[Rfam]
RNA sequence: AGCACCAAAGCCGCGAGGCUCACACCGUACAGGACCCAUCCCUCUCCCCCCCAGAGGCUGCGAUCCACUCUCGUGAGCGGGCUAAGGUCUGAGCAUUCCAAUCCCUCUCCAUCGACUCUUGCCGGGUCCGGUCUCAACAGACCGCGCGUCGCACCAGAAAUCCAGUCCUCCACGCCGUGCCCUUUCCAGGGCCCCCCGGAGAUGCUCCGUCUCGCACGUUUGCAGAGGGGGCGGCGACGGCGGCGUGUCUGGACUUUGGGAUACGGCGCAGGGAUCGGGCGCGCGCCCUCCCCCCUCGUCCCCCAGCGACGGCGGGCGUGCCGUCCUUUAGUGCACUUCGCGGCUCGCGUUCACGGGGGCCUCGCGCCCCUGCGAAACUCGAUUCAGACUACUCUGGUGCU
Numbered sequence: 001a002g003c004a005c006c007a008a009a010g011c012c013g014c015g016a017g018g019c020u021c022a023c024a025c026c027g028u029a030c031a032g033g034a035c036c037c038a039u040c041c042c043u044c045u046c047c048c049c050c051c052c053a054g055a056g057g058c059u060g061c062g063a064u065c066c067a068c069u070c071u072c073g074u075g076a077g078c079g080g081g082c083u084a085a086g087g088u089c090u091g092a093g094c095a096u097u098c099c100a101a102u103c104c105c106u107c108u109c110c111a112u113c114g115a116c117u118c119u120u121g122c123c124g125g126g127u128c129c130g131g132u133c134u135c136a137a138c139a140g141a142c143c144g145c146g147c148g149u150c151g152c153a154c155c156a157g158a159a160a161u162c163c164a165g166u167c168c169u170c171c172a173c174g175c176c177g178u179g180c181c182c183u184u185u186c187c188a189g190g191g192c193c194c195c196c197c198g199g200a201g202a203u204g205c206u207c208c209g210u211c212u213c214g215c216a217c218g219u220u221u222g223c224a225g226a227g228g229g230g231g232c233g234g235c236g237a238c239g240g241c242g243g244c245g246u247g248u249c250u251g252g253a254c255u256u257u258g259g260g261a262u263a264c265g266g267c268g269c270a271g272g273g274a275u276c277g278g279g280c281g282c283g284c285g286c287c288c289u290c291c292c293c294c295c296u297c298g299u300c301c302c303c304c305a306g307c308g309a310c311g312g313c314g315g316g317c318g319u320g321c322c323g324u325c326c327u328u329u330a331g332u333g334c335a336c337u338u339c340g341c342g343g344c345u346c347g348c349g350u351u352c353a354c355g356g357g358g359g360c361c362u363c364g365c366g367c368c369c370c371u372g373c374g375a376a377a378c379u380c381g382a383u384u385c386a387g388a389c390u391a392c393u394c395u396g397g398u399g400c401u
Base pairs, nucleotide, nucleotide: 001401002400005397006396007395010344011343012342013341014340015339016338018078019077020076021075022074032066033065034064036062037060089387090386091385092384093383097274098273099272114128115127116126117125118124129144130143131142132141133140134139146269147268148267149266150265151264164255165254166253167252168251345375346374347373348372349371
Dot-bracket structure: ((..(((..(((((((.(((((.........(((.((......................).).))).......)))))..........[[[[[...(((..............(((((.....)))))((((((....)))))).((((((............(((((..................................................................................)))))........))))))..)))...............................................................)))))))(((((.....................))))).......]]]]].......)))..))
A member of the RNA family "Nuclear RNase P" from Trametes cinnabarina, 401 nucleotides long. Rfam classes the family as a ribozyme. It scores 33 bits against the family's covariance model.